[Rfam]
RNA: caulobacter sRNA CC2171
RNA sequence: AACGUAUCGGAAGGAGGUGAUCCAGUGUCUCAUUGUCAUUUGCUGCGGGCCCGGACCUGGACUCGCGCCAGUGAGGUUUUCGCCUCCUAGGCGUCAGGUUCGCGGAAACGCGGUCCGACAAUGGAAGGGUCGUCCGGGAAGGGCGGCCCU
Numbered sequence: 001a002a003c004g005u006a007u008c009g010g011a012a013g014g015a016g017g018u019g020a021u022c023c024a025g026u027g028u029c030u031c032a033u034u035g036u037c038a039u040u041u042g043c044u045g046c047g048g049g050c051c052c053g054g055a056c057c058u059g060g061a062c063u064c065g066c067g068c069c070a071g072u073g074a075g076g077u078u079u080u081c082g083c084c085u086c087c088u089a090g091g092c093g094u095c096a097g098g099u100u101c102g103c104g105g106a107a108a109c110g111c112g113g114u115c116c117g118a119c120a121a122u123g124g125a126a127g128g129g130u131c132g133u134c135c136g137g138g139a140a141g142g143g144c145g146g147c148c149c150u
Stems, first nucleotide, its partner, number of pairs: 016023002031123007044060001047057002050054001062097002064093001067092003073086004100113005126150010